[Rfam]
The record is an 87-nucleotide sequence, which matches "CopA-like RNA" in Rfam.
RNA sequence: AUAGAGCAACAGCUUCUAUGCAGUUUUGAAAGGCCCCGUUAAUCUUCUGAGUCGCCAAACAUAGAAAGAUUAUCGGGGUUUUUGCUU
Numbered sequence: 001a002u003a004g005a006g007c008a009a010c011a012g013c014u015u016c017u018a019u020g021c022a023g024u025u026u027u028g029a030a031a032g033g034c035c036c037c038g039u040u041a042a043u044c045u046u047c048u049g050a051g052u053c054g055c056c057a058a059a060c061a062u063a064g065a066a067a068g069a070u071u072a073u074c075g076g077g078g079u080u081u082u083u084g085c086u087u
Stems, first nucleotide, its partner, number of pairs: 001019005028086001031081008040072007

The base pairs follow the family's consensus structure, which was predicted with PFOLD.
About the family: In several groups of bacterial plasmids, antisense RNAs regulate copy number through inhibition of replication initiator protein synthesis. These RNAs are characterised by a long hairpin structure interrupted by several unpaired residues or bulged loops.